[Rfam]
Nuclear RNase P: a 667-nucleotide RNA from Sphagnurus paluster. Lineage of the source: Eukaryota > Dikarya > Basidiomycota > Tricholomatineae > Sphagnurus. The base pairs follow the family's consensus structure, which is taken from published work. Rfam describes the family as follows. Ribonuclease P (RNase P) is a ubiquitous endoribonuclease, found in archaea, bacteria and eukarya as well as chloroplasts and mitochondria. Its best characterised activity is the generation of mature 5'-ends of tRNAs by cleaving the 5'-leader elements of precursor-tRNAs. It is annotated as a ribozyme. Clan: RNaseP clan. A search with the family's covariance model found it, with a score of 60 bits.
RNA sequence: GCAGACGCAAGGCUGCGAUGUUCGUCCCAUACAGAGCUCCUCGAGCUCUUCCUCGCGAACGGGCCAAGGUCUGAGCAUUCUAGUCCUCCUCGAUCGGUCCCAGAUGGACCUGGCGAUAGCUCGCCGCGCGGCGCACCAGAAAUUCAUCCUCACUCUAUACCACGCCCGAAGAACCUGGCUUCGGCCUAGCGAGGGCCUCAGUGCUGGGGGUUUGAAAUCCGCCGCGAGGAUUGGGCAGCGCUACACCAUGCACACACACCACACCCUGCUCUAUUCGGCACGGACGCGUGCCCUGCGUAUGCCCAGGACGUCAAUGGCAUUGGUACCCUCCUUUACCCUCGAUAUCCUGUGCCCCCGCCCUGGCUGAGCGUCCCGCCUAGGCGCUCCCAGUCCAGCGAGUGUCUUCAAAUAGAUGAGUCCUCAAGUCGAGGACAGAGCCUUGGCAGCUCGCGACGGCAUGUCGCAUUUGAUUCUAGGACACGACAAGCAGGCAUGUAUACUGCCAAGUUCGGAACCCGUUUAAGGUUCAGCAUGGUUGGCAGUCAGGGUACCCGUGUCCGGAGAGUAGGUGUACGUGUGUGUGUGCGCUGUCCUUUAGUUCACUUCGCAGCACGCGUCGUUGCUAUUGCAAUGGCAUGGAACUCGAUUCAGACUACUCUGCGUCUGC
Numbered sequence: 001g002c003a004g005a006c007g008c009a010a011g012g013c014u015g016c017g018a019u020g021u022u023c024g025u026c027c028c029a030u031a032c033a034g035a036g037c038u039c040c041u042c043g044a045g046c047u048c049u050u051c052c053u054c055g056c057g058a059a060c061g062g063g064c065c066a067a068g069g070u071c072u073g074a075g076c077a078u079u080c081u082a083g084u085c086c087u088c089c090u091c092g093a094u095c096g097g098u099c100c101c102a103g104a105u106g107g108a109c110c111u112g113g114c115g116a117u118a119g120c121u122c123g124c125c126g127c128g129c130g131g132c133g134c135a136c137c138a139g140a141a142a143u144u145c146a147u148c149c150u151c152a153c154u155c156u157a158u159a160c161c162a163c164g165c166c167c168g169a170a171g172a173a174c175c176u177g178g179c180u181u182c183g184g185c186c187u188a189g190c191g192a193g194g195g196c197c198u199c200a201g202u203g204c205u206g207g208g209g210g211u212u213u214g215a216a217a218u219c220c221g222c223c224g225c226g227a228g229g230a231u232u233g234g235g236c237a238g239c240g241c242u243a244c245a246c247c248a249u250g251c252a253c254a255c256a257c258a259c260c261a262c263a264c265c266c267u268g269c270u271c272u273a274u275u276c277g278g279c280a281c282g283g284a285c286g287c288g289u290g291c292c293c294u295g296c297g298u299a300u301g302c303c304c305a306g307g308a309c310g311u312c313a314a315u316g317g318c319a320u321u322g323g324u325a326c327c328c329u330c331c332u333u334u335a336c337c338c339u340c341g342a343u344a345u346c347c348u349g350u351g352c353c354c355c356c357g358c359c360c361u362g363g364c365u366g367a368g369c370g371u372c373c374c375g376c377c378u379a380g381g382c383g384c385u386c387c388c389a390g391u392c393c394a395g396c397g398a399g400u401g402u403c404u405u406c407a408a409a410u411a412g413a414u415g416a417g418u419c420c421u422c423a424a425g426u427c428g429a430g431g432a433c434a435g436a437g438c439c440u441u442g443g444c445a446g447c448u449c450g451c452g453a454c455g456g457c458a459u460g461u462c463g464c465a466u467u468u469g470a471u472u473c474u475a476g477g478a479c480a481c482g483a484c485a486a487g488c489a490g491g492c493a494u495g496u497a498u499a500c501u502g503c504c505a506a507g508u509u510c511g512g513a514a515c516c517c518g519u520u521u522a523a524g525g526u527u528c529a530g531c532a533u534g535g536u537u538g539g540c541a542g543u544c545a546g547g548g549u550a551c552c553c554g555u556g557u558c559c560g561g562a563g564a565g566u567a568g569g570u571g572u573a574c575g576u577g578u579g580u581g582u583g584u585g586c587g588c589u590g591u592c593c594u595u596u597a598g599u600u601c602a603c604u605u606c607g608c609a610g611c612a613c614g615c616g617u618c619g620u621u622g623c624u625a626u627u628g629c630a631a632u633g634g635c636a637u638g639g640a641a642c643u644c645g646a647u648u649c650a651g652a653c654u655a656c657u658c659u660g661c662g663u664c665u666g667c
Stems, first nucleotide, its partner, number of pairs: 001667004007661003020060005034048006071651005077231004096110005111126006127226007148210002